Annotation: Shown here is a 351-nucleotide sequence from Bianquea renquensis, a member of the family "Bacterial RNase P class A". Pairs were carried over by alignment from the consensus structure, which is taken from published work. Ribonuclease P (RNase P) is a ubiquitous endoribonuclease, found in archaea, bacteria and eukarya as well as chloroplasts and mitochondria. Its best characterised activity is the generation of mature 5'-ends of tRNAs by cleaving the 5'-leader elements of precursor-tRNAs. The organism belongs to Bianquea, within Bacteria. By type it is a ribozyme.
[Rfam]
RNA sequence: UGAGUUCGCUGAGCGAUCGCACAGGCGGGGGCCGAAAGGCUGCCUGUGAGGAAAGUCCGAGCUCCGCAGGGCAGGGUGCUGGGUAACACCCAGUGGAGGCGACUCCCAGGACAGUGCAACAGAAAUAAACCGCCGGGCAAAAUCCGGUAAGGGUGGAAAGGCGAGGUAAGAGCUCACCGCCUCACUGGUGACAGCGAGGGCACAUGUAAACCCCACUUGGAGCAAGACCGAACAGAAUACGAUACGGCGGCCCGUCGUGUAUUCGGGUAGGUCGCGUGAGCUUUAUGGCAACAUGAAGUCAAGAUAGAUGAUCGCUCUCGACAGAACUCGGCUUACAGGCGGACUCAACUG
Numbered sequence: 001u002g003a004g005u006u007c008g009c010u011g012a013g014c015g016a017u018c019g020c021a022c023a024g025g026c027g028g029g030g031g032c033c034g035a036a037a038g039g040c041u042g043c044c045u046g047u048g049a050g051g052a053a054a055g056u057c058c059g060a061g062c063u064c065c066g067c068a069g070g071g072c073a074g075g076g077u078g079c080u081g082g083g084u085a086a087c088a089c090c091c092a093g094u095g096g097a098g099g100c101g102a103c104u105c106c107c108a109g110g111a112c113a114g115u116g117c118a119a120c121a122g123a124a125a126u127a128a129a130c131c132g133c134c135g136g137g138c139a140a141a142a143u144c145c146g147g148u149a150a151g152g153g154u155g156g157a158a159a160g161g162c163g164a165g166g167u168a169a170g171a172g173c174u175c176a177c178c179g180c181c182u183c184a185c186u187g188g189u190g191a192c193a194g195c196g197a198g199g200g201c202a203c204a205u206g207u208a209a210a211c212c213c214c215a216c217u218u219g220g221a222g223c224a225a226g227a228c229c230g231a232a233c234a235g236a237a238u239a240c241g242a243u244a245c246g247g248c249g250g251c252c253c254g255u256c257g258u259g260u261a262u263u264c265g266g267g268u269a270g271g272u273c274g275c276g277u278g279a280g281c282u283u284u285a286u287g288g289c290a291a292c293a294u295g296a297a298g299u300c301a302a303g304a305u306a307g308a309u310g311a312u313c314g315c316u317c318u319c320g321a322c323a324g325a326a327c328u329c330g331g332c333u334u335a336c337a338g339g340c341g342g343a344c345u346c347a348a349c350u351g
Base pairs, nucleotide, nucleotide: 001347002346003345004344005343006342007341008340009339010338011336012316013315014314015313016312017311018310020048021047022046023045024044025043026042027041028040053334054333055332057331058330059329060328061327062222063221064220065219069253070252071251072250074218075217076216077215078214079093080092081091082090083089094108095106096105097104098103109213110212114211115210116207117206118205130152131151132148133147134146135145136144137143160178161177163175164174165173179201180199181198182197183196185194186193187192226273227272228271229270235264236263237262238261239260240259244258245257246256247255248254280299281298282297283296284295285294286293287292